[Rfam]
A member of the RNA family "mir-1 microRNA precursor family" from Parambassis ranga, 72 nucleotides long. NCBI's taxonomy places the organism under Eukaryota, Eumetazoa, Actinopterygii, Ovalentaria, Parambassis. From the family's description: This family represents the microRNA (miRNA) mir-1 family. miRNAs are transcribed as ~70nt precursors (modelled here) and subsequently processed by the Dicer enzyme to give a ~22nt product. In this case the mature sequence comes from the 3' arm of the precursor.
RNA sequence: UAUUAAAGUCCUUCCUUCCAUAUAACCAUAUAUCCAUAUAUAUAUGGUUAUAUGGAAGGAAGGACUUUCUUA
Numbered sequence: 001u002a003u004u005a006a007a008g009u010c011c012u013u014c015c016u017u018c019c020a021u022a023u024a025a026c027c028a029u030a031u032a033u034c035c036a037u038a039u040a041u042a043u044a045u046g047g048u049u050a051u052a053u054g055g056a057a058g059g060a061a062g063g064a065c066u067u068u069c070u071u072a
Stems, first nucleotide, its partner, number of pairs: 007066024
A reference for the family is Lee and Ambros (2001), "An extensive class of small RNAs in Caenorhabditis elegans", Science. Gene Ontology terms of the family: RISC complex and miRNA-mediated post-transcriptional gene silencing.